[Rfam]
RNA sequence: UUGGCACACGGAGAUGGCAUGCCUCCGGCCCCAGCCGGGGCGAACCACCCUUCCCUUAGGGUUGAUGAUGCCUGCACCGCC
Dot-bracket structure: .........[[[[..(((((..]]]]....................((((........)))).....))))).........
Shown here is an 81-nucleotide sequence from Dyella sp. AD56, a member of the family "Fluoride riboswitch aptamer (crcB RNA motif)". Lineage of the source: Bacteria > Pseudomonadati > Pseudomonadota > Lysobacterales > Dyella. The base pairs follow the family's consensus structure, which is taken from published work. The match comes from Rfam's covariance-model search (41 bits).